[Rfam]
RNA: S10-Clostridia ribosomal protein leader
RNA sequence: AGAGUGCGAUGAAAUAAAAGGUUGCUGGUAUACCAGGUAAUUUUUAUCGAGUAUGUUCGUAUCUUAGAAUCGGGCGACGU
Numbered sequence: 001a002g003a004g005u006g007c008g009a010u011g012a013a014a015u016a017a018a019a020g021g022u023u024g025c026u027g028g029u030a031u032a033c034c035a036g037g038u039a040a041u042u043u044u045u046a047u048c049g050a051g052u053a054u055g056u057u058c059g060u061a062u063c064u065u066a067g068a069a070u071c072g073g074g075c076g077a078c079g080u
Stems, first nucleotide, its partner, number of pairs: 014047003018044004025036004054079004063074003